[Rfam]
RNA sequence: GCUCGUCUGGGGUGUGCGUUGUUGGUUACGUCCCUGAGCCGAUAAUUAAACACUUUGAGUUGGGCAUUAAACUGCUGGUGAGCAGGCUCAGCUACUUCGGUAGAUUGAGAAGCCUAAAAGCGGUUACGUUCGACUCGCCUUGAACCGUCUGGUUCAAGGACCAUCACUGAUGACGGCACUUCGGACACCCU
Numbered sequence: 001g002c003u004c005g006u007c008u009g010g011g012g013u014g015u016g017c018g019u020u021g022u023u024g025g026u027u028a029c030g031u032c033c034c035u036g037a038g039c040c041g042a043u044a045a046u047u048a049a050a051c052a053c054u055u056u057g058a059g060u061u062g063g064g065c066a067u068u069a070a071a072c073u074g075c076u077g078g079u080g081a082g083c084a085g086g087c088u089c090a091g092c093u094a095c096u097u098c099g100g101u102a103g104a105u106u107g108a109g110a111a112g113c114c115u116a117a118a119a120g121c122g123g124u125u126a127c128g129u130u131c132g133a134c135u136c137g138c139c140u141u142g143a144a145c146c147g148u149c150u151g152g153u154u155c156a157a158g159g160a161c162c163a164u165c166a167c168u169g170a171u172g173a174c175g176g177c178a179c180u181u182c183g184g185a186c187a188c189c190c191u
Base pairs, nucleotide, nucleotide: 005186006185007184008183009182010181011180012179013178014177015176017175018174019173030161031160032159033158035156036155037154038153039152040151057136058135059134061132062131063130064129065128068126070125071124072123073122074121075120076119082113083112087109088108089107090106091105
Dot-bracket structure: ....(((((((((((.(((..........((((.((((((................(((.(((((..(.(((((((.....((...(((((.............)))))..)).....)))))))).))))).)))..............)))))).))))...........)))))))))))))).....